This 325-nucleotide RNA sequence from Candidatus Erwinia dacicola belongs to the Rfam family "RNase E 5' UTR element". The base pairs follow the family's consensus structure, which is taken from published work. Lineage of the source: Bacteria > Pseudomonadati > Pseudomonadota > Enterobacterales > Erwinia. By type it is a cis-regulatory element. It scores 199 bits against the family's covariance model. This family represents a conserved element found in the 5' UTR of RNase E mRNA. RNase E is a key regulatory enzyme in the pathway of mRNA degradation in E. coli that is able to auto-regulate the degradation of its own mRNA in response to changes in RNase E activity. This rne 5' UTR element acts as a sensor of cellular RNase E concentration enabling tight regulation of RNase E concentration and synthesis.
[Rfam]
RNA sequence: CCUUAUAUUUGGCAGUUGAAAGAUAAGGGUGUAAUACUAAAUUUUGCUGGAUAGCCCAUACACGCAGCAAUGGCGUAAGACGUAUUGAGCAAUUAGGCAUUUAGCGCGCUGCGGGUUGCAGCUUGGACGAAAACGGGAUUUGUUCACCUAGUAUUAUACUGGCGGUUCUCCCCAUCAAAGCGCUGUUUUUCCAUAUGUAAAACAGGCUACCGAGUAUUUGCGCCCCAAGAGCAGCCGACAUCCGUGAGGUUGACGGCCUUGCAAUGAGACAGGGGUCAUCGGUUUUUCACGUUCAGCGUUACUUUGCCCGCAGCUUUGUCACUAA
Number, nucleotide and partner (000 for none) at each position: 001c029002c000003u000004u000005a000006u000007a024008u023009u022010u021011g000012g000013c000014a000015g000016u000017u000018g000019a000020a000021a010022g009023a008024u007025a000026a000027g000028g000029g001030u000031g000032u000033a000034a000035u000036a000037c000038u000039a000040a000041a000042u000043u000044u000045u099046g098047c097048u096049g000050g094051a093052u000053a000054g000055c089056c000057c087058a086059u000060a000061c000062a083063c082064g081065c000066a000067g074068c073069a000070a000071u000072g000073g068074c067075g000076u000077a000078a000079g000080a000081c064082g063083u062084a000085u000086u058087g057088a000089g055090c000091a000092a000093u051094u050095a000096g048097g047098c046099a045100u000101u000102u000103a000104g000105c000106g316107c000108g314109c313110u312111g311112c310113g309114g308115g307116u306117u000118g000119c000120a000121g000122c000123u000124u295125g294126g293127a292128c291129g290130a000131a000132a000133a000134c000135g172136g171137g170138a169139u000140u000141u000142g000143u000144u165145c164146a000147c162148c161149u000150a000151g000152u000153a000154u000155u000156a000157u000158a000159c000160u000161g148162g147163c000164g145165g144166u000167u000168c000169u138170c137171c136172c135173c000174a000175u000176c000177a000178a000179a208180g207181c206182g000183c205184u204185g203186u202187u000188u200189u199190u000191c197192c000193a000194u000195a000196u000197g191198u000199a189200a188201a000202a186203c185204a184205g183206g181207c180208u179209a283210c282211c281212g280213a279214g000215u000216a000217u000218u000219u000220g000221c000222g276223c275224c274225c273226c272227a000228a000229g000230a000231g000232c000233a000234g000235c000236c255237g254238a000239c252240a251241u000242c249243c248244g000245u000246g000247a000248g243249g242250u000251u240252g239253a000254c237255g236256g000257c000258c000259u000260u000261g000262c000263a000264a000265u000266g000267a000268g000269a000270c000271a000272g226273g225274g224275g223276u222277c000278a000279u213280c212281g211282g210283u209284u000285u000286u000287u000288c000289a000290c129291g128292u127293u126294c125295a124296g000297c000298g000299u000300u000301a000302c000303u000304u000305u000306g116307c115308c114309c113310g112311c111312a110313g109314c108315u000316u106317u000318g000319u000320c000321a000322c000323u000324a000325a000